[Rfam]
RNA sequence: GAGGCCGAGGGGCGCUGCGAUCGUGUCCACCACGACCAGGCUCGGCAUCGAACAACGGCGCCCGUGACCG
Numbered sequence: 001g002a003g004g005c006c007g008a009g010g011g012g013c014g015c016u017g018c019g020a021u022c023g024u025g026u027c028c029a030c031c032a033c034g035a036c037c038a039g040g041c042u043c044g045g046c047a048u049c050g051a052a053c054a055a056c057g058g059c060g061c062c063c064g065u066g067a068c069c070g
Stems, first nucleotide, its partner, number of pairs: 002048001004046005021035005

Background: The family of this 70-nucleotide sequence from Thermomonas haemolytica is "SAH (S-adenosyl-L-homocysteine) riboswitch aptamer". Lineage of the source: Bacteria > Pseudomonadati > Gammaproteobacteria > Lysobacteraceae > Thermomonas. It scores 55 bits against the family's covariance model. On this family, see Wang et al., Mol Cell 2008: "Riboswitches that sense S-adenosylhomocysteine and activate genes involved in coenzyme recycling". Rfam 15.1 lists 1,354 matches to the family in 1,132 species.